Rfam assigns this 156-nucleotide sequence from Aerococcus kribbianus to the family "M-box riboswitch aptamer (ykoK leader)". Pairs were carried over by alignment from the consensus structure. Rfam links the family to the GO terms regulation of gene expression and response to magnesium ion. M-box riboswitch, also know as ykoK leader is described as a metaloregulatory RNA that sense divalent metals and function as a genetic control element of genes related to divalent metal transport in bacteria.
[Rfam]
RNA sequence: AUAGACAGUUGUUAAGGGAGGCUCCUUUACAAAUAUACGCUACUGCCCAGAAACAUCGAGAGAUGCCAAUGGGUUAGCUGGCUCUAUCGCUAAGGUAGAACCUAAUGUAGCUAGUGACGUUGUAAAGUGCUAAAACUCAGACAGGAAGUUAACGGU
Numbered sequence: 001a002u003a004g005a006c007a008g009u010u011g012u013u014a015a016g017g018g019a020g021g022c023u024c025c026u027u028u029a030c031a032a033a034u035a036u037a038c039g040c041u042a043c044u045g046c047c048c049a050g051a052a053a054c055a056u057c058g059a060g061a062g063a064u065g066c067c068a069a070u071g072g073g074u075u076a077g078c079u080g081g082c083u084c085u086a087u088c089g090c091u092a093a094g095g096u097a098g099a100a101c102c103u104a105a106u107g108u109a110g111c112u113a114g115u116g117a118c119g120u121u122g123u124a125a126a127g128u129g130c131u132a133a134a135a136c137u138c139a140g141a142c143a144g145g146a147a148g149u150u151a152a153c154g155g156u
Stems, first nucleotide, its partner, number of pairs: 007150004011142002013093001015137002020131003025127008039111005045074005054065004080102002083099001086096003
Dot-bracket structure: ......(((((([.((...(((..((((((((......(((((.(((((....((((....))))....))))).....((.(..(((....])))..).))....)))))........)))))))).)))....))...))....))))......